[Rfam]
RNA sequence: GGACGUUCUCAGGGCGGGGUGAAAGUCCCCACCGGCGGUAAAGUCUUGCGCGGGCGAAAGCCCGCCGGGGCGCAGCCCGCGAGCGCCGGCCCCGCGAGGGGCCGGGUCAGCAGAUCCGGUGUGAUUCCGGGGCCGACGGUCAUAGUCCGGAUGGAAGAGAGCGCGA
Numbered sequence: 001g002g003a004c005g006u007u008c009u010c011a012g013g014g015c016g017g018g019g020u021g022a023a024a025g026u027c028c029c030c031a032c033c034g035g036c037g038g039u040a041a042a043g044u045c046u047u048g049c050g051c052g053g054g055c056g057a058a059a060g061c062c063c064g065c066c067g068g069g070g071c072g073c074a075g076c077c078c079g080c081g082a083g084c085g086c087c088g089g090c091c092c093c094g095c096g097a098g099g100g101g102c103c104g105g106g107u108c109a110g111c112a113g114a115u116c117c118g119g120u121g122u123g124a125u126u127c128c129g130g131g132g133c134c135g136a137c138g139g140u141c142a143u144a145g146u147c148c149g150g151a152u153g154g155a156a157g158a159g160a161g162c163g164c165g166a
Stems, first nucleotide, its partner, number of pairs: 004163007017029003031146002033135002035080004083111002115131005137149003